[Rfam]
RNA sequence: AGUGCAAGACCAUGGCAGAAGCGCUUAGUGUGGCCCUGUCAGAUUCCAACAAAUCUGCAAAUUCUGCU
Numbered sequence: 001a002g003u004g005c006a007a008g009a010c011c012a013u014g015g016c017a018g019a020a021g022c023g024c025u026u027a028g029u030g031u032g033g034c035c036c037u038g039u040c041a042g043a044u045u046c047c048a049a050c051a052a053a054u055c056u057g058c059a060a061a062u063u064c065u066g067c068u
Stems, first nucleotide, its partner, number of pairs: 008035001010033002014068007021031003040057006
Rfam assigns this 68-nucleotide RNA from Alligator mississippiensis to the family "Mammalian CPEB3 ribozyme". A search with the family's covariance model found it, with a score of 35 bits. For this family Rfam cites "Autocatalytic RNA cleavage in the human beta-globin pre-mRNA promotes transcription termination" (Teixeira et al., Nature, 2004). Rfam describes the family as follows. The mammalian CPEB3 ribozyme is a self cleaving RNA located in the second intron of the CPEB3 gene which belongs to a family of genes regulating messenger RNA polyadenylation. The base pairs follow the family's consensus structure, which is taken from published work. NCBI's taxonomy places the organism under Eukaryota, Chordata, Dipnotetrapodomorpha, Sauropsida, Alligator.